[Rfam]
RNA: TPP riboswitch aptamer (THI element)
RNA sequence: AAAUUGCACCAGGGGUGCCAUUCUGCUGCAUCCAUCGCCAGUUUUGGCAAAGGAUGGCAGCAGGUUUGGCUGAGAAAGUCCCUUUGAACCUGAACAGGAUAAUGCCUGCGUAGGGAGCGUGCAAUCUUUUCCUU
Numbered sequence: 001a002a003a004u005u006g007c008a009c010c011a012g013g014g015g016u017g018c019c020a021u022u023c024u025g026c027u028g029c030a031u032c033c034a035u036c037g038c039c040a041g042u043u044u045u046g047g048c049a050a051a052g053g054a055u056g057g058c059a060g061c062a063g064g065u066u067u068g069g070c071u072g073a074g075a076a077a078g079u080c081c082c083u084u085u086g087a088a089c090c091u092g093a094a095c096a097g098g099a100u101a102a103u104g105c106c107u108g109c110g111u112a113g114g115g116a117g118c119g120u121g122c123a124a125u126c127u128u129u130u131c132c133u134u
Stems, first nucleotide, its partner, number of pairs: 006122004011083004016077001017070004089114004095108004